Nucleotides: 070
Stems, first nucleotide, its partner, number of pairs: 001070003004066001
Number, partner (000 for none) and nucleotide at each position: 001070c002069c003068u004066c005000a006000c007000u008000g009000a010000u011000g012000a013000u014000u015000a016000g017000c018000u019000c020000u021000g022000a023000c024000u025000u026000u027000c028000g029000u030000u031000c032000u033000u034000c035000u036000g037000a038000g039000u040000u041000u042000g043000c044000u045000g046000a047000a048000g049000c050000c051000a052000g053000a054000u055000g056000c057000c058000a059000u060000u061000c062000c063000u064000g065000a066004g067000a068003a069002g070001g